[Rfam]
RNA sequence: CGACCCUUCUAAGCCGAGGGUCACCUAGCCAACUGACGUUGUUAGUGAACCUUCUUGUUCACACAUAUAUAUGGCCAAUCGCGCUUAUUGCGAUUGGCUUUUUUUAU
Number, nucleotide and partner (000 for none) at each position: 001c000002g022003a021004c020005c019006c018007u000008u000009c000010u000011a000012a000013g000014c000015c000016g000017a000018g006019g005020g004021u003022c002023a000024c000025c000026u000027a000028g000029c000030c000031a000032a000033c000034u000035g000036a000037c000038g000039u000040u071041g070042u069043u000044a000045g062046u061047g060048a059049a058050c057051c000052u000053u000054c000055u000056u000057g050058u049059u048060c047061a046062c045063a000064c000065a000066u000067a000068u000069a042070u041071a040072u000073g000074g000075c097076c096077a095078a094079u093080c092081g091082c090083g000084c000085u000086u000087a000088u000089u000090g082091c081092g080093a079094u078095u077096g076097g075098c000099u000100u000101u000102u000103u000104u000105u000106a000107u000
A member of the RNA family "Qrr RNA" from Vibrio furnissii, 107 nucleotides long. The organism belongs to Vibrio, within Bacteria. Rfam's curators write: This family represents a set of small RNAs (the Qrr RNAs) that are thought to be involved in the regulation of quorum sensing in Vibrio species. It is believed that these RNAs, guided by a protein, Hfq, can mediate the destabilisation of the quorum-sensing master regulators LuxR/HapR mRNAs. A reference for the family is Lenz et al. (2004), "The Small RNA Chaperone Hfq and Multiple Small RNAs Control Quorum Sensing in Vibrio harveyi and Vibrio cholerae", Cell. Gene Ontology term of the family: quorum sensing. The base pairs follow the family's consensus structure, which is taken from published work.